[Rfam]
RNA sequence: GGACCACCCAGUGAGGUUAAGGCCAUACGGACAGCCGGGUCCACUGCCGA
Numbered sequence: 001g002g003a004c005c006a007c008c009c010a011g012u013g014a015g016g017u018u019a020a021g022g023c024c025a026u027a028c029g030g031a032c033a034g035c036c037g038g039g040u041c042c043a044c045u046g047c048c049g050a
Stems, first nucleotide, its partner, number of pairs: 001042005006017003
The record is a 50-nucleotide RNA sequence, which matches "Streptococcus sRNA SpF59 (ldcC RNA)" in Rfam. Rfam classes the family as a small RNA. For this family Rfam cites "Control of virulence by small RNAs in Streptococcus pneumoniae" (Mann et al., PLoS Pathog, 2012).